[Rfam]
RNA sequence: AUUUGAAAAAGGCAAAUCUAUUGAAAAAUAGAGACGCAAAGUCACAGGCCUACGGUACAUUACUAUGGUGGCUGGACCGCUGAA
Numbered sequence: 001a002u003u004u005g006a007a008a009a010a011g012g013c014a015a016a017u018c019u020a021u022u023g024a025a026a027a028a029u030a031g032a033g034a035c036g037c038a039a040a041g042u043c044a045c046a047g048g049c050c051u052a053c054g055g056u057a058c059a060u061u062a063c064u065a066u067g068g069u070g071g072c073u074g075g076a077c078c079g080c081u082g083a084a
Base pairs, nucleotide, nucleotide: 012037013036017032018031019030020029021028022027041077042076043075045074046073047072048069049068050067055063056062057061
Overview: Rfam assigns this 84-nucleotide RNA sequence from Anaerobacillus alkaliphilus to the family "c-di-GMP-I riboswitch aptamer". Pairs were carried over by alignment from the consensus structure, which is taken from published work.